[Rfam]
RNA sequence: CUGUUUCUCUCUAUGGCACUGGAAGAAUUCACGGGGACUCAAUGUUAUUCCGUGGUUUCUCUAGUGCUGUGAAGAGCAGCGG
Dot-bracket structure: ..(((.((((..((((((.(((..(((.((((((...............)))))))))..))).))))))..)))).)))..
Record summary: mir-263 microRNA precursor family: an 82-nucleotide RNA sequence from Tetranychus urticae. On this family, see Li et al., BMC Genomics 2009: "Direct sequencing and expression analysis of a large number of miRNAs in Aedes aegypti and a multi-species survey of novel mosquito miRNAs".